Shown here is a 133-nucleotide RNA sequence from Triplophysa rosa, a member of the family "Small nucleolar RNA SNORA8". Pairs were carried over by alignment from the consensus structure, which was predicted with RNAfold. Rfam classes the family as an H/ACA-box small nucleolar RNA. Lineage of the source: Eukaryota > Craniata > Otophysi > Cypriniformes > Triplophysa. ACA8 is a member of the H/ACA class of snoRNA that guide the sites of modification of uridines to pseudouridines.
RNA sequence: AGCACUGUGGGGUAUCUGCAUGCAGUUGUAUGUCUGACUGGAUGUUCAAAUGGCAGUGCUAGAUUACUUCGGCACCUACUAUUAUUGGACCUUAUAUCUGUUGUUGGGUCCUAGUAGUGAUCGAGACAAAUUU
Numbered sequence: 001a002g003c004a005c006u007g008u009g010g011g012g013u014a015u016c017u018g019c020a021u022g023c024a025g026u027u028g029u030a031u032g033u034c035u036g037a038c039u040g041g042a043u044g045u046u047c048a049a050a051u052g053g054c055a056g057u058g059c060u061a062g063a064u065u066a067c068u069u070c071g072g073c074a075c076c077u078a079c080u081a082u083u084a085u086u087g088g089a090c091c092u093u094a095u096a097u098c099u100g101u102u103g104u105u106g107g108g109u110c111c112u113a114g115u116a117g118u119g120a121u122c123g124a125g126a127c128a129a130a131u132u133u
Stems, first nucleotide, its partner, number of pairs: 002059006015052001017050001018045004023040006062122007069114001071112002078104002081101002